[Rfam]
RNA sequence: GGCCCAUAAAUUGCUGAUCUCCCUUCAUCCCGGGCUAUCAACGUCGACAGCCCAUAAAAACUCACGACAAAGGCGCCGU
Numbered sequence: 001g002g003c004c005c006a007u008a009a010a011u012u013g014c015u016g017a018u019c020u021c022c023c024u025u026c027a028u029c030c031c032g033g034g035c036u037a038u039c040a041a042c043g044u045c046g047a048c049a050g051c052c053c054a055u056a057a058a059a060a061c062u063c064a065c066g067a068c069a070a071a072g073g074c075g076c077c078g079u
Stems, first nucleotide, its partner, number of pairs: 033052004038047002
Dot-bracket structure: ................................((((.((......)).))))...........................

The record is a 79-nucleotide RNA from Pseudomonas putida, which matches "narK RNA" in Rfam. The family's consensus secondary structure is taken from published work.